[Rfam]
RNA: mir-584 microRNA precursor family
RNA sequence: UAGGGUCACCAACUGUCCCAGUUUGCCUGAGACUGAGGAAUUUCCUGGCAUACAGAUGUUCCAUACCAGUGCCAGGACAGUUAGUUCCAGGCAAACUGGGACAGUUGGUCACCCAGGUGCCCA
Dot-bracket structure: (.((((.((((((((...(((((((((((.((((((.(.((........)).)...........................)))))).)))))))))))...)))))))).)))).).......